[Rfam]
RNA sequence: AAGGCUUUCUCUUUCUUGAGAUUUUUGCUUGCACUUAUUCCAAUGUGUUUGGCGACAUUCUUAAUUGAAGCCGAUAUCUGUGUUCCCCUCGCUAUCCAUUAGUGCAAUUUUGAUGCAGCAUUUGGACGUCGGGGAACUAAAUUG
Numbered sequence: 001a002a003g004g005c006u007u008u009c010u011c012u013u014u015c016u017u018g019a020g021a022u023u024u025u026u027g028c029u030u031g032c033a034c035u036u037a038u039u040c041c042a043a044u045g046u047g048u049u050u051g052g053c054g055a056c057a058u059u060c061u062u063a064a065u066u067g068a069a070g071c072c073g074a075u076a077u078c079u080g081u082g083u084u085c086c087c088c089u090c091g092c093u094a095u096c097c098a099u100u101a102g103u104g105c106a107a108u109u110u111u112g113a114u115g116c117a118g119c120a121u122u123u124g125g126a127c128g129u130c131g132g133g134g135a136a137c138u139a140a141a142u143u144g
Stems, first nucleotide, its partner, number of pairs: 001075001003072003008067001012063001017057002025055005031049001033048002082137007090128002095126004104116003
The record is a 144-nucleotide RNA from Glycine max, which matches "Small nucleolar RNA snoR136" in Rfam. The source organism's lineage runs through Eukaryota, Streptophytina, Embryophyta, eudicotyledons and Glycine subgen. Soja. Pairs were carried over by alignment from the consensus structure, which was predicted with mfold. The family has 8 seed sequences and 452 matches in Rfam 15.1. The literature on the family includes a 2009 paper in Nucleic Acids Res by Chen and Wu, "Mining small RNA sequencing data: a new approach to identify small nucleolar RNAs in Arabidopsis".